[Rfam]
RNA sequence: AAGUGUUCUCAGGGCGGGGUGCAAUUCCCCACCGGCGGUGAUCACUGGGUGCCCUCAAGGUGUCAGGUGCGAGCCCGCGAGCGCUUUCCGGCACUCCGGAGAGGUCAGCAGAUUUCGGUGCAAUUCCGAAGCCGACGGUAUAGUCCGGAUGAAAGAGAACAACU
Numbered sequence: 001a002a003g004u005g006u007u008c009u010c011a012g013g014g015c016g017g018g019g020u021g022c023a024a025u026u027c028c029c030c031a032c033c034g035g036c037g038g039u040g041a042u043c044a045c046u047g048g049g050u051g052c053c054c055u056c057a058a059g060g061u062g063u064c065a066g067g068u069g070c071g072a073g074c075c076c077g078c079g080a081g082c083g084c085u086u087u088c089c090g091g092c093a094c095u096c097c098g099g100a101g102a103g104g105u106c107a108g109c110a111g112a113u114u115u116c117g118g119u120g121c122a123a124u125u126c127c128g129a130a131g132c133c134g135a136c137g138g139u140a141u142a143g144u145c146c147g148g149a150u151g152a153a154a155g156a157g158a159a160c161a162a163c164u
Base pairs, nucleotide, nucleotide: 004161005160006159007158008157009156010155017029018028019027031144032143033134034133035078036077037076038075073132074131081109082108114130115129116128117127118126136147137146138145
RNA: FMN riboswitch aptamer (RFN element)
Organism: Phyllobacterium zundukense